Rfam assigns this 274-nucleotide part of an RNA from Parahoeflea phototrophica to the family "Bacterial large subunit ribosomal RNA". The base pairs follow the family's consensus structure, which is taken from published work.

RNA sequence: GAUAAAGGGAGUGAGAGACUCCCUCGCCGAAAGACCAAGGGUUCCUGCUUAAAGUUAAUCUGAGCAGGGUUAGCCGGCCCCUAAGGCGAGGCCGAAAGGCGUAGUCGAUGGGAACCACGUUAAUAAUCGUGGGCCUGGUGGUAGUGACGGAUCUCGUGUGUUGUAUCUCCUUAUUGGAUUGGAGGUGCAGCGAAGAGGUUCCAGGAAAUAGCUCCACCGUAUAGACCGUACCCGAAACCGACACAGGUGGUCAGGUAGAGAAUACCAAGGCGCU
Numbered sequence: 001g002a003u004a005a006a007g008g009g010a011g012u013g014a015g016a017g018a019c020u021c022c023c024u025c026g027c028c029g030a031a032a033g034a035c036c037a038a039g040g041g042u043u044c045c046u047g048c049u050u051a052a053a054g055u056u057a058a059u060c061u062g063a064g065c066a067g068g069g070u071u072a073g074c075c076g077g078c079c080c081c082u083a084a085g086g087c088g089a090g091g092c093c094g095a096a097a098g099g100c101g102u103a104g105u106c107g108a109u110g111g112g113a114a115c116c117a118c119g120u121u122a123a124u125a126a127u128c129g130u131g132g133g134c135c136u137g138g139u140g141g142u143a144g145u146g147a148c149g150g151a152u153c154u155c156g157u158g159u160g161u162u163g164u165a166u167c168u169c170c171u172u173a174u175u176g177g178a179u180u181g182g183a184g185g186u187g188c189a190g191c192g193a194a195g196a197g198g199u200u201c202c203a204g205g206a207a208a209u210a211g212c213u214c215c216a217c218c219g220u221a222u223a224g225a226c227c228g229u230a231c232c233c234g235a236a237a238c239c240g241a242c243a244c245a246g247g248u249g250g251u252c253a254g255g256u257a258g259a260g261a262a263u264a265c266c267a268a269g270g271c272g273c274u
Stems, first nucleotide, its partner, number of pairs: 006024006025272004033252004039232002044068006053061002075228003080111002085106003089102001091100003115132005135224001136219002140215002143213003149201004157195001160191011238247002254266004

The organism belongs to Parahoeflea phototrophica, within Bacteria.